[Rfam]
RNA sequence: CCUCUGGAAAGCCCGCGGCCGGGCCCUGCCCGCGCCUCGGCACCGACGGAGUAAGGCCGGCCCGGCCACAGGAAGGCGGGCGGCCGAAUCUCUCAGGUCAUCGGACAGAGG
Numbered sequence: 001c002c003u004c005u006g007g008a009a010a011g012c013c014c015g016c017g018g019c020c021g022g023g024c025c026c027u028g029c030c031c032g033c034g035c036c037u038c039g040g041c042a043c044c045g046a047c048g049g050a051g052u053a054a055g056g057c058c059g060g061c062c063c064g065g066c067c068a069c070a071g072g073a074a075g076g077c078g079g080g081c082g083g084c085c086g087a088a089u090c091u092c093u094c095a096g097g098u099c100a101u102c103g104g105a106c107a108g109a110g111g
Stems, first nucleotide, its partner, number of pairs: 001111006013040003042098003045094002049092003055085005
The record is a 111-nucleotide RNA sequence from Roseomonas acroporae, which matches "Glycine riboswitch aptamer" in Rfam. It scores 38 bits against the family's covariance model. NCBI's taxonomy places the organism under Bacteria, Pseudomonadati, Alphaproteobacteria, Roseomonadaceae, Roseomonas.